[Rfam]
RNA sequence: AGCCACGCAGUGAGCACAGAACGAACAGUUCUUUUGCCUUUUACUAAAGAAUACCCAUGUGCACUCUGCAAAUAGUGGGUUAUGCCUAUUUUUGGAGGGGUUCUCUCUAUUGAGUGCC
Numbered sequence: 001a002g003c004c005a006c007g008c009a010g011u012g013a014g015c016a017c018a019g020a021a022c023g024a025a026c027a028g029u030u031c032u033u034u035u036g037c038c039u040u041u042u043a044c045u046a047a048a049g050a051a052u053a054c055c056c057a058u059g060u061g062c063a064c065u066c067u068g069c070a071a072a073u074a075g076u077g078g079g080u081u082a083u084g085c086c087u088a089u090u091u092u093u094g095g096a097g098g099g100g101u102u103c104u105c106u107c108u109a110u111u112g113a114g115u116g117c118c
Stems, first nucleotide, its partner, number of pairs: 003078004008068003012064001014062005028052007098117001100115004